Shown here is a 100-nucleotide RNA from Intestinimonas butyriciproducens, a member of the family "SAM riboswitch aptamer (S box leader)". The SAM riboswitch is found upstream of a number of genes which code for proteins involved in methionine or cysteine biosynthesis in Gram-positive bacteria.
[Rfam]
RNA sequence: GCCUUAUCAAGAGUGGCGGAGGGAACGGCCCGAUGAAGCCCGGCAACCUGCGGUGAAGCGCAAGGUGCCAAAUCCGGCGGCAGUGAUCGAAAGAUGAGGA
Numbered sequence: 001g002c003c004u005u006a007u008c009a010a011g012a013g014u015g016g017c018g019g020a021g022g023g024a025a026c027g028g029c030c031c032g033a034u035g036a037a038g039c040c041c042g043g044c045a046a047c048c049u050g051c052g053g054u055g056a057a058g059c060g061c062a063a064g065g066u067g068c069c070a071a072a073u074c075c076g077g078c079g080g081c082a083g084u085g086a087u088c089g090a091a092a093g094a095u096g097a098g099g100a
Stems, first nucleotide, its partner, number of pairs: 002099007013041001015040003021031003026076003042069004047065002049062004073092001078089003
Pairs were carried over by alignment from the consensus structure, which is taken from published work.